[Rfam]
RNA sequence: GCUUUCAACAUCCCCGUUCGGCGCUCAAAAGAGGUGGCCGGACUGAAGGC
Numbered sequence: 001g002c003u004u005u006c007a008a009c010a011u012c013c014c015c016g017u018u019c020g021g022c023g024c025u026c027a028a029a030a031g032a033g034g035u036g037g038c039c040g041g042a043c044u045g046a047a048g049g050c
Base pairs, nucleotide, nucleotide: 001050002049003048004047005046006045007044013036014034016043017042018041019040020039021038022037023035025032026031
A member of the RNA family "nadA riboswitch" from Acidobacteriaceae bacterium KBS 83, 50 nucleotides long. Rfam's curators put it in the seed alignment. The literature on the family includes a 2020 paper in RNA by Huang et al., "Structure and ligand binding of the ADP-binding domain of the NAD(+) riboswitch". The family's RNA type in Rfam is small RNA.